[Rfam]
RNA sequence: GGUGUUCGGGACCAACCCCCCCUGGUCUUGAGCGCCGACGGCCCCGGCUUCCCCCCCGCCGGGGCCGUCCCCA
Numbered sequence: 001g002g003u004g005u006u007c008g009g010g011a012c013c014a015a016c017c018c019c020c021c022c023u024g025g026u027c028u029u030g031a032g033c034g035c036c037g038a039c040g041g042c043c044c045c046g047g048c049u050u051c052c053c054c055c056c057c058g059c060c061g062g063g064g065c066c067g068u069c070c071c072c073a
Stems, first nucleotide, its partner, number of pairs: 002036001004033010037069012